About this RNA
Rfam assigns this 74-nucleotide sequence from Thermoplasma acidophilum to the family "tRNA".

RNA sequence: AGCGGGGUGGGGUAGUCAGGAAAUCCGAUGGGCUCAUAACCCGUAGAUCGAUGGUUCAAAUCCAUCCCCCGCUA
Numbered sequence: 001a002g003c004g005g006g007g008u009g010g011g012g013u014a015g016u017c018a019g020g021a022a023a024u025c026c027g028a029u030g031g032g033c034u035c036a037u038a039a040c041c042c043g044u045a046g047a048u049c050g051a052u053g054g055u056u057c058a059a060a061u062c063c064a065u066c067c068c069c070c071g072c073u074a
Stems, first nucleotide, its partner, number of pairs: 001073007010026004028044005050066005
It is annotated as a transfer RNA.
Transfer RNA (tRNA) molecules are approximately 80 nucleotides in length.